[Rfam]
RNA sequence: GUUUGCCAGAAAUUCGUCGGUAAGCAGAUUUGCAUUGAUUUACGUCAUUACUG
Numbered sequence: 001g002u003u004u005g006c007c008a009g010a011a012a013u014u015c016g017u018c019g020g021u022a023a024g025c026a027g028a029u030u031u032g033c034a035u036u037g038a039u040u041u042a043c044g045u046c047a048u049u050a051c052u053g
Stems, first nucleotide, its partner, number of pairs: 001025007009018002033053002036050004
ES003 sRNA: a 53-nucleotide sequence from Shigella flexneri. Rfam's curators write: Differentially expressed under several chemical stress and fermentation conditions. The organism belongs to Shigella flexneri, within Bacteria. The base pairs follow the family's consensus structure, which was predicted with RNAfold. On this family, see Rau et al., BMC Genomics 2015: "Differential expression of small RNAs under chemical stress and fed-batch fermentation in E. coli". It is annotated as a small RNA.